[Rfam]
RNA sequence: GCGCUAUAGCUAAGUGGUUACAGCGACAGAUUAGAAAUCUGUUCCUCUUUGAGGGCGCAGGUUCGAAUCCUGCUGGCGUCGAAGUGUUUUU
Numbered sequence: 001g002c003g004c005u006a007u008a009g010c011u012a013a014g015u016g017g018u019u020a021c022a023g024c025g026a027c028a029g030a031u032u033a034g035a036a037a038u039c040u041g042u043u044c045c046u047c048u049u050u051g052a053g054g055g056c057g058c059a060g061g062u063u064c065g066a067a068u069c070c071u072g073c074u075g076g077c078g079u080c081g082a083a084g085u086g087u088u089u090u091u
Base pairs, nucleotide, nucleotide: 002086003085004084005083009077010076011075012074014073015072016071017070024065025064026063